[Rfam]
Rfam assigns this 206-nucleotide sequence from Escherichia phage PHB10 to the family "Gammaproteobacterial sRNA STnc100". By type it is a small RNA. The source organism's lineage runs through Viruses, Duplodnaviria, Heunggongvirae, Uroviricota and Caudoviricetes. The match comes from Rfam's covariance-model search (74 bits).
Nucleotides: 206
Stems, first nucleotide, its partner, number of pairs: 016152001030144006040055005063086001098122004103117003124138005162206001164204001174197001176195007
Number, partner (000 for none) and nucleotide at each position: 001000g002000c003000g004000g005000a006000a007000u008000g009000g010000a011000u012000g013000u014000u015000u016152c017000u018000g019000a020000a021000a022000g023000c024000g025000u026000u027000u028000u029000u030144g031143u032142g033141g034140u035139g036000g037000a038000u039000c040055c041054c042053c043052c044051u045000a046000a047000g048000c049000g050000g051044a052043g053042g054041g055040g056000c057000g058000g059000u060000u061000c062000a063086g064000c065000a066000g067000g068000a069000c070000a071000u072000u073000u074000c075000u076000c077000c078000a079000g080000a081000g082000u083000g084000u085000c086063c087000a088000a089000c090000c091000a092000g093000c094000g095000c096000g097000c098122g099121g100120a101119a102000a103117u104116g105115a106000a107000u108000g109000c110000u111000g112000u113000g114000a115105u116104c117103a118000u119101u120100u121099c122098c123000a124138c125137c126136g127135g128134g129000a130000g131000g132000c133000a134128c135127c136126c137125g138124g139035c140034a141033c142032c143031a144030c145000u146000c147000c148000c149000u150000c151000a152016g153000u154000u155000a156000u157000u158000g159000c160000c161000a162206a163000c164204u165000u166000a167000g168000c169000u170000a171000u172000u173000u174197a175000u176195g177194c178193c179192u180191g181190c182189u183000u184000g185000u186000c187000c188000g189182a190181g191180c192179a193178g194177g195176c196000u197174u198000u199000u200000u201000u202000u203000u204164a205000u206162u